[Rfam]
RNA: MIR2629 microRNA precursor family
RNA sequence: AGGUUUGAAAUUUCUCGACAGUUAACUGCAGCCGAUUUUUUAAAAUUUCGGCAGUUAACUGCCAAGGGGCAU
Numbered sequence: 001a002g003g004u005u006u007g008a009a010a011u012u013u014c015u016c017g018a019c020a021g022u023u024a025a026c027u028g029c030a031g032c033c034g035a036u037u038u039u040u041u042a043a044a045a046u047u048u049c050g051g052c053a054g055u056u057a058a059c060u061g062c063c064a065a066g067g068g069g070c071a072u
Base pairs, nucleotide, nucleotide: 012068013067015065017063019061020060021059022058023057024056025055026054027053028052029051